[Rfam]
RNA sequence: AAUCUGUCACGGAUAACCUAGUGGAAGGCCAGCCGCUAAGUCAGUAACCUUGCUGCGGCAUUUGCCAGCGGGAAAGGUGCCCGGUACGAAUCCCGGGGUCGUCGUUGUACUCGUGCGAGUAAUCCACGAUGCUACAAGGCGUUAAGCAAUGGAAGUGACCCUUGAGGGAAGCAAUUCUGCAGAGACAUUUCCACCCUGGGAUGGCGUCGCCGGAGGACACCUUCCCGUUACAGGGAAACUGGCUGCUUGGCUGGACAACCGUAACUCUCUU
Numbered sequence: 001a002a003u004c005u006g007u008c009a010c011g012g013a014u015a016a017c018c019u020a021g022u023g024g025a026a027g028g029c030c031a032g033c034c035g036c037u038a039a040g041u042c043a044g045u046a047a048c049c050u051u052g053c054u055g056c057g058g059c060a061u062u063u064g065c066c067a068g069c070g071g072g073a074a075a076g077g078u079g080c081c082c083g084g085u086a087c088g089a090a091u092c093c094c095g096g097g098g099u100c101g102u103c104g105u106u107g108u109a110c111u112c113g114u115g116c117g118a119g120u121a122a123u124c125c126a127c128g129a130u131g132c133u134a135c136a137a138g139g140c141g142u143u144a145a146g147c148a149a150u151g152g153a154a155g156u157g158a159c160c161c162u163u164g165a166g167g168g169a170a171g172c173a174a175u176u177c178u179g180c181a182g183a184g185a186c187a188u189u190u191c192c193a194c195c196c197u198g199g200g201a202u203g204g205c206g207u208c209g210c211c212g213g214a215g216g217a218c219a220c221c222u223u224c225c226c227g228u229u230a231c232a233g234g235g236a237a238a239c240u241g242g243c244u245g246c247u248u249g250g251c252u253g254g255a256c257a258a259c260c261g262u263a264a265c266u267c268u269c270u271u
Stems, first nucleotide, its partner, number of pairs: 002014003019264001021262004027256001029254006035247001037245001039244007048235005057066003069227004074223006081213005086207003090202009100141001102139002106136004111129005117124002142146001150193007161184003168177003
RNA: Fungal signal recognition particle RNA
Organism: Aspergillus thermomutatus